About this RNA:
Shown here is a 91-nucleotide RNA from Python bivittatus, a member of the family "Small nucleolar SNORD12/SNORD106". The base pairs follow the family's consensus structure, which was predicted with RNAalifold. On this family, see Huttenhofer et al., EMBO J 2001: "RNomics: an experimental approach that identifies 201 candidates for novel, small, non-messenger RNAs in mouse".
[Rfam]
RNA sequence: GCUGAUGUAUAUGAUGACUAAAGCUUUUUUCCCCAUCAGAGCGAUGCUGUUGAUCUUACUGUCUUAGCCAAAUCUUGUCUGAUACAUCAGC
Numbered sequence: 001g002c003u004g005a006u007g008u009a010u011a012u013g014a015u016g017a018c019u020a021a022a023g024c025u026u027u028u029u030u031c032c033c034c035a036u037c038a039g040a041g042c043g044a045u046g047c048u049g050u051u052g053a054u055c056u057u058a059c060u061g062u063c064u065u066a067g068c069c070a071a072a073u074c075u076u077g078u079c080u081g082a083u084a085c086a087u088c089a090g091c
Base pairs, nucleotide, nucleotide: 001091002090003089004088005087006086007085008084009083

The source organism's lineage runs through Eukaryota, Craniata, Tetrapoda, Bifurcata and Python.